Overview: Shown here is a 104-nucleotide sequence from Prauserella cavernicola, a member of the family "mraW RNA". A search with the family's covariance model found it, with a score of 63 bits. By type it is a cis-regulatory element. Pairs were carried over by alignment from the consensus structure, which is taken from published work. The family has 45 seed sequences and 851 matches in Rfam 15.1.
[Rfam]
RNA sequence: CGACGAAGUUCCGACGCGGAUGCCGUCAGGCUGCGGCCCUGAUGCACCUUCCCCGGUAUCAGGUCCGCAACCUGACGGCAUCCGCAUUGGAAGUGAAAAAAACG
Numbered sequence: 001c002g003a004c005g006a007a008g009u010u011c012c013g014a015c016g017c018g019g020a021u022g023c024c025g026u027c028a029g030g031c032u033g034c035g036g037c038c039c040u041g042a043u044g045c046a047c048c049u050u051c052c053c054c055g056g057u058a059u060c061a062g063g064u065c066c067g068c069a070a071c072c073u074g075a076c077g078g079c080a081u082c083c084g085c086a087u088u089g090g091a092a093g094u095g096a097a098a099a100a101a102a103c104g
Stems, first nucleotide, its partner, number of pairs: 010091005016085001018083002021080010032069005038063008